[Rfam]
RNA: int-alpA RNA
RNA sequence: CAGUGGGAUAGGGUAGCUCCCGAAAAGCGUAAACCGUAAUACGCCUGUCCACUGUUUUAUAAUUACGG
Numbered sequence: 001c002a003g004u005g006g007g008a009u010a011g012g013g014u015a016g017c018u019c020c021c022g023a024a025a026a027g028c029g030u031a032a033a034c035c036g037u038a039a040u041a042c043g044c045c046u047g048u049c050c051a052c053u054g055u056u057u058u059a060u061a062a063u064u065a066c067g068g
Base pairs, nucleotide, nucleotide: 001054002053003052004051005050006049007048011021012020013019027044028043029042030041031040034068035067036066037065038064039063